[Rfam]
RNA sequence: GUUCCCAUUAUACUACCACUUUUUCAGUUUGCAGAUGAAGUGGCUAUGCUUGUGGGAUAGAGCAAAACUUGCCACGGUCUGAAGGAAAAGGUUGAUUGUAUCUUCUUCCUAUAUGAAGUUGGCAAAACAUCCCUUA
Dot-bracket structure: ...((((........((((....................)))).........))))..............((((..............(((................))).........)))).............
Shown here is a 136-nucleotide RNA from Jacana jacana, a member of the family "Small nucleolar RNA SNORA29". A search with the family's covariance model found it, with a score of 110 bits. Its Rfam clan is "SNORA20 clan". From the family's description: ACA29 is a member of the H/ACA class of snoRNA that guide the sites of modification of uridines to pseudouridines. For this family Rfam cites "RNomics: an experimental approach that identifies 201 candidates for novel, small, non-messenger RNAs in mouse" (Huttenhofer et al., EMBO J, 2001).